[Rfam]
RNA sequence: UGACCCUUCUUAAGCCGAGGGUCACCUAGCCAACUGACGUUGUUAGUGAAUGAUACCUUGUUCACACAAAUAUAUAGCCAAUCACAGUUUUUGUGGUUGGUUUUUUUUUG
Numbered sequence: 001u002g003a004c005c006c007u008u009c010u011u012a013a014g015c016c017g018a019g020g021g022u023c024a025c026c027u028a029g030c031c032a033a034c035u036g037a038c039g040u041u042g043u044u045a046g047u048g049a050a051u052g053a054u055a056c057c058u059u060g061u062u063c064a065c066a067c068a069a070a071u072a073u074a075u076a077g078c079c080a081a082u083c084a085c086a087g088u089u090u091u092u093g094u095g096g097u098u099g100g101u102u103u104u105u106u107u108u109u110g
Stems, first nucleotide, its partner, number of pairs: 001024006041074003046065007078100008
Qrr RNA: a 110-nucleotide RNA sequence from Vibrio genomosp. F6. The family has 30 seed sequences and 148 matches in Rfam 15.1. Pairs were carried over by alignment from the consensus structure, which is taken from published work. The source organism's lineage runs through Bacteria, Pseudomonadati, Gammaproteobacteria, Vibrio and Vibrio genomosp. F6. This family represents a set of small RNAs (the Qrr RNAs) that are thought to be involved in the regulation of quorum sensing in Vibrio species. The literature on the family includes a 2004 paper in Cell by Lenz et al., "The Small RNA Chaperone Hfq and Multiple Small RNAs Control Quorum Sensing in Vibrio harveyi and Vibrio cholerae".